[Rfam]
RNA sequence: UGACUUUUUUCUUAAUCAAACUUCUUUAAAUUUGACCAAGUUUAUAGAAAAGCAUAUCAACAUUUUUAACACCGAACAAACAUACUAUGAAAACAUAUUCAAUAUUAGGUUUAAUGGAACUAAUUUGGUGUUAUAAGAGUUACUACAUUUCUAUAUAAACUUGGUCAAGCUUAAAGAAGUUUGAUUAGAAAAAAAGUCAA
Numbered sequence: 001u002g003a004c005u006u007u008u009u010u011c012u013u014a015a016u017c018a019a020a021c022u023u024c025u026u027u028a029a030a031u032u033u034g035a036c037c038a039a040g041u042u043u044a045u046a047g048a049a050a051a052g053c054a055u056a057u058c059a060a061c062a063u064u065u066u067u068a069a070c071a072c073c074g075a076a077c078a079a080a081c082a083u084a085c086u087a088u089g090a091a092a093a094c095a096u097a098u099u100c101a102a103u104a105u106u107a108g109g110u111u112u113a114a115u116g117g118a119a120c121u122a123a124u125u126u127g128g129u130g131u132u133a134u135a136a137g138a139g140u141u142a143c144u145a146c147a148u149u150u151c152u153a154u155a156u157a158a159a160c161u162u163g164g165u166c167a168a169g170c171u172u173a174a175a176g177a178a179g180u181u182u183g184a185u186u187a188g189a190a191a192a193a194a195a196g197u198c199a200a
Stems, first nucleotide, its partner, number of pairs: 005195005012188015031169005043155008055145002059141003063137003067133002072128005

The family of this 200-nucleotide RNA from Oryza meridionalis is "MIR1435 microRNA precursor family".
The match comes from Rfam's covariance-model search (100 bits).
The family has 3 seed sequences and 1,765 matches in Rfam 15.1.
Taxonomically the source falls in Oryza (Eukaryota, Tracheophyta, Mesangiospermae, Liliopsida).